Shown here is a 184-nucleotide RNA sequence from Pseudohaemophilus paraphrohaemolyticus, a member of the family "Lysine riboswitch aptamer". NCBI's taxonomy places the organism under Bacteria, Pseudomonadati, Pseudomonadota, Pasteurellaceae, Pseudohaemophilus. A search with the family's covariance model found it, with a score of 140 bits. The family's consensus secondary structure is taken from published work.

RNA sequence: UACAAUUGUAGAGGUGCAAAUACGAUAAGUACUUUUUCUGAGUGGAAAACGAUGAGGAAAAAUGAAAGGCGUAUUUGCCGAAAUCAAUCAAGCGUCAUCUUGGUUGGUUGGGGUCGUUGCCGAAAGGGACGACACUGUCGCAGUUUCGAUAUUCCUUGUAUCACUGCGGAGUGCUACUGUAAGU
Numbered sequence: 001u002a003c004a005a006u007u008g009u010a011g012a013g014g015u016g017c018a019a020a021u022a023c024g025a026u027a028a029g030u031a032c033u034u035u036u037u038c039u040g041a042g043u044g045g046a047a048a049a050c051g052a053u054g055a056g057g058a059a060a061a062a063u064g065a066a067a068g069g070c071g072u073a074u075u076u077g078c079c080g081a082a083a084u085c086a087a088u089c090a091a092g093c094g095u096c097a098u099c100u101u102g103g104u105u106g107g108u109u110g111g112g113g114u115c116g117u118u119g120c121c122g123a124a125a126g127g128g129a130c131g132a133c134a135c136u137g138u139c140g141c142a143g144u145u146u147c148g149a150u151a152u153u154c155c156u157u158g159u160a161u162c163a164c165u166g167c168g169g170a171g172u173g174c175u176a177c178u179g180u181a182a183g184u
Stems, first nucleotide, its partner, number of pairs: 006179001008177004016078009033062007082109011110136002113133006120126001138169007